Shown here is a 97-nucleotide RNA sequence from Cysteiniphilum litorale, a member of the family "TPP riboswitch aptamer (THI element)". Vitamin B(1) in its active form thiamin pyrophosphate (TPP) is an essential coenzyme that is synthesised by coupling of pyrimidine and thiazole moieties in bacteria. The organism belongs to Cysteiniphilum, within Bacteria.
[Rfam]
RNA sequence: GCCGAACAACAGGGGUGCAUUUUGCUGAGAAGGUUUUACCUAACCCUUUGUACCUGAACUAGUUAAUCCUAGCGUAGGAAGUUGAUAAAGUGCAUCU
Numbered sequence: 001g002c003c004g005a006a007c008a009a010c011a012g013g014g015g016u017g018c019a020u021u022u023u024g025c026u027g028a029g030a031a032g033g034u035u036u037u038a039c040c041u042a043a044c045c046c047u048u049u050g051u052a053c054c055u056g057a058a059c060u061a062g063u064u065a066a067u068c069c070u071a072g073c074g075u076a077g078g079a080a081g082u083u084g085a086u087a088a089a090g091u092g093c094a095u096c097u
Base pairs, nucleotide, nucleotide: 007084008083009082010081011047012046013045014044017025018024019023032040033039034038053078054077055076056075059072060071061070062069